[Rfam]
RNA sequence: GGGCAGGAUAUGUGAAGUUAGCUAACCGGCGCGCCGGUUAUCUAUCUUCACUUCCCUUAUUCGCGCCUUCGGCGCUCAACGGGAACCUGCUCUGCGAGGCC
Numbered sequence: 001g002g003g004c005a006g007g008a009u010a011u012g013u014g015a016a017g018u019u020a021g022c023u024a025a026c027c028g029g030c031g032c033g034c035c036g037g038u039u040a041u042c043u044a045u046c047u048u049c050a051c052u053u054c055c056c057u058u059a060u061u062c063g064c065g066c067c068u069u070c071g072g073c074g075c076u077c078a079a080c081g082g083g084a085a086c087c088u089g090c091u092c093u094g095c096g097a098g099g100c101c
Stems, first nucleotide, its partner, number of pairs: 001092007012051006019044003024039006053084004063075005
The record is a 101-nucleotide RNA sequence from Rugamonas rivuli, which matches "traJ-II RNA" in Rfam. The family's RNA type in Rfam is cis-regulatory element. NCBI's taxonomy places the organism under Bacteria, Pseudomonadati, Betaproteobacteria, Burkholderiales, Rugamonas.